[Rfam]
RNA sequence: ACCUUUGCACAGUGGCAGUAUCGUACCCAAUGAGGUUUAUCCAAGGCACGAUUAUUGCUAAUUGAGAACUUCAUAUAUAGAAUAUCAAUCUCUAAAUAUGGAAUAUCAAUCUCCAAAUGUGGA
Numbered sequence: 001a002c003c004u005u006u007g008c009a010c011a012g013u014g015g016c017a018g019u020a021u022c023g024u025a026c027c028c029a030a031u032g033a034g035g036u037u038u039a040u041c042c043a044a045g046g047c048a049c050g051a052u053u054a055u056u057g058c059u060a061a062u063u064g065a066g067a068a069c070u071u072c073a074u075a076u077a078u079a080g081a082a083u084a085u086c087a088a089u090c091u092c093u094a095a096a097u098a099u100g101g102a103a104u105a106u107c108a109a110u111c112u113c114c115a116a117a118u119g120u121g122g123a
Base pairs, nucleotide, nucleotide: 020052021051022050023049024048027046028045034042035041091123092122093121096118097117099115100114101113102112103110104109

The record is a 123-nucleotide sequence from Nyctereutes procyonoides, which matches "U4 spliceosomal RNA" in Rfam. Rfam 15.1 lists 32,178 matches to the family in 2,547 species. U4 small nuclear RNA (U4 snRNA) is a component of the major U2-dependent spliceosome. The family's consensus secondary structure is taken from published work. It scores 65 bits against the family's covariance model. Rfam classes the family as a spliceosomal small nuclear RNA.